[Rfam]
RNA sequence: UGGUGCCCAACGUGGGGCUAGAUACUGGGGGACAACGUGAGGGUCCAACGACGGAGUAAAGAAGGGGUGCAUACCUGAUCAAACAAUAGUUCAAAAACGUUGCAGUAGCCUACUGUAACCGAGCCAACAGGUAAAUUAGUCGUUCAAUCAUGGGACAAAAAUUAAAUCAACAGCAAAAAUAUGUAAUACAAUUAAAAAAAACUUUACAGACAAAAAAAUAAAAGUUACAACUAAAGAUUUAUUUCAUUUUUUUGAUUUUGUAAAAAACAUCUGCCCAU
Numbered sequence: 001u002g003g004u005g006c007c008c009a010a011c012g013u014g015g016g017g018c019u020a021g022a023u024a025c026u027g028g029g030g031g032a033c034a035a036c037g038u039g040a041g042g043g044u045c046c047a048a049c050g051a052c053g054g055a056g057u058a059a060a061g062a063a064g065g066g067g068u069g070c071a072u073a074c075c076u077g078a079u080c081a082a083a084c085a086a087u088a089g090u091u092c093a094a095a096a097a098c099g100u101u102g103c104a105g106u107a108g109c110c111u112a113c114u115g116u117a118a119c120c121g122a123g124c125c126a127a128c129a130g131g132u133a134a135a136u137u138a139g140u141c142g143u144u145c146a147a148u149c150a151u152g153g154g155a156c157a158a159a160a161a162u163u164a165a166a167u168c169a170a171c172a173g174c175a176a177a178a179a180u181a182u183g184u185a186a187u188a189c190a191a192u193u194a195a196a197a198a199a200a201a202c203u204u205u206a207c208a209g210a211c212a213a214a215a216a217a218a219u220a221a222a223a224g225u226u227a228c229a230a231c232u233a234a235a236g237a238u239u240u241a242u243u244u245c246a247u248u249u250u251u252u253u254g255a256u257u258u259u260g261u262a263a264a265a266a267a268c269a270u271c272u273g274c275c276c277a278u
Base pairs, nucleotide, nucleotide: 006030007029008028012025013024014023036050037049038048086132087131089128090127098121099120101117102116103115104114105113137158139156140155143154144153145152146151163206164205165204167201213253214252215251216250217249218248222240223239224238225237226236263278268273
RNA: Mason-Pfizer monkey virus packaging signal